[Rfam]
This 76-nucleotide sequence from Otolemur garnettii belongs to the Rfam family "Small nucleolar RNA SNORD19". By type it is a C/D-box small nucleolar RNA. Rfam 15.1 lists 1,431 matches to the family in 609 species. Gene Ontology terms of the family: RNA processing and nucleolus. A search with the family's covariance model found it, with a score of 37 bits. The literature on the family includes a 2001 paper in EMBO J by Huttenhofer et al., "RNomics: an experimental approach that identifies 201 candidates for novel, small, non-messenger RNAs in mouse". Taxonomically the source falls in Otolemur (Eukaryota, Euteleostomi, Mammalia, Strepsirrhini).
RNA sequence: AAGAAAUGAAGAAGUUAAGGUUGGUCUUAGUGUUGAUGUGAGGACUGUCAGAUCCAACUCUGAUCUUGCACUAAAC
Numbered sequence: 001a002a003g004a005a006a007u008g009a010a011g012a013a014g015u016u017a018a019g020g021u022u023g024g025u026c027u028u029a030g031u032g033u034u035g036a037u038g039u040g041a042g043g044a045c046u047g048u049c050a051g052a053u054c055c056a057a058c059u060c061u062g063a064u065c066u067u068g069c070a071c072u073a074a075a076c
Stems, first nucleotide, its partner, number of pairs: 001067004